[Rfam]
The family of this 97-nucleotide RNA from Ranunculus glacialis is "Plastid-rps12 3UTR RNA". A reference for the family is Richter et al. (2023), "Retrograde signaling in plants: A critical review focusing on the GUN pathway and beyond", Plant Commun. NCBI's taxonomy places the organism under Eukaryota, Streptophytina, Tracheophyta, Ranunculaceae, Ranunculus. Rfam describes the family as follows. Plastid rpl20 is a non-coding RNA (ncRNA) recognised in plastids.
RNA sequence: GGUUUCUAUUGGUGCAAAUCCAAUCACUUCAAUUGGAGAUGAAAAGCAAUUCCCCAUUGGUAGCAAAUGGUUAUUCAUUAAGCGGGGAAACCGUAUU
Numbered sequence: 001g002g003u004u005u006c007u008a009u010u011g012g013u014g015c016a017a018a019u020c021c022a023a024u025c026a027c028u029u030c031a032a033u034u035g036g037a038g039a040u041g042a043a044a045a046g047c048a049a050u051u052c053c054c055c056a057u058u059g060g061u062a063g064c065a066a067a068u069g070g071u072u073a074u075u076c077a078u079u080a081a082g083c084g085g086g087g088a089a090a091c092c093g094u095a096u097u
Stems, first nucleotide, its partner, number of pairs: 009023004052087004056078002059075006